Group II catalytic intron D1-D4-6: a 217-nucleotide RNA sequence from Marinilabilia rubra. Gene Ontology term of the family: Group II intron splicing. The match comes from Rfam's covariance-model search (96 bits).
[Rfam]
RNA sequence: UCAAUCCUAUCCGGGAAAGUUUAACCGACACCCGGAACUGAGUGUUGCGUAGUUAGCAGAAAUGUUGGCACGAAGCGUACACCGGGAAUGCAAAAGCCGUUUAGUUAAAGCCUCGAAAAAAAACCGAAUGCAAGGGUUUUCACAUUAGCGCUUGUGGGAACAGUAGCGCAGUAAUCGUCAUGGUAAGGGAACUGUGCCCGACCGGGGUCGUUGAGCA
Numbered sequence: 001u002c003a004a005u006c007c008u009a010u011c012c013g014g015g016a017a018a019g020u021u022u023a024a025c026c027g028a029c030a031c032c033c034g035g036a037a038c039u040g041a042g043u044g045u046u047g048c049g050u051a052g053u054u055a056g057c058a059g060a061a062a063u064g065u066u067g068g069c070a071c072g073a074a075g076c077g078u079a080c081a082c083c084g085g086g087a088a089u090g091c092a093a094a095a096g097c098c099g100u101u102u103a104g105u106u107a108a109a110g111c112c113u114c115g116a117a118a119a120a121a122a123a124c125c126g127a128a129u130g131c132a133a134g135g136g137u138u139u140u141c142a143c144a145u146u147a148g149c150g151c152u153u154g155u156g157g158g159a160a161c162a163g164u165a166g167c168g169c170a171g172u173a174a175u176c177g178u179c180a181u182g183g184u185a186a187g188g189g190a191a192c193u194g195u196g197c198c199c200g201a202c203c204g205g206g207g208u209c210g211u212u213g214a215g216c217a
Base pairs, nucleotide, nucleotide: 010036011035012034013033014032019029020028021027022186024184025183038085039084042082043081044080045079046077047076048072049071050070053068054067055066056065057064058063107211110208111207112206113205114204115203130202134199135198136161137160138159141156142155143154144153166197167196168195169194170193171192172191175188176187
Dot-bracket structure: .........(((((....((([.[[.)))..))))).((..(((((((((..((((((....)))))).)))...)).)))).)).....................(..((((((..............(...(((((..((((........))))..)))....(((((((..((......]].]))..)))))))))..)))))))..)......
The organism belongs to Marinilabilia, within Bacteria.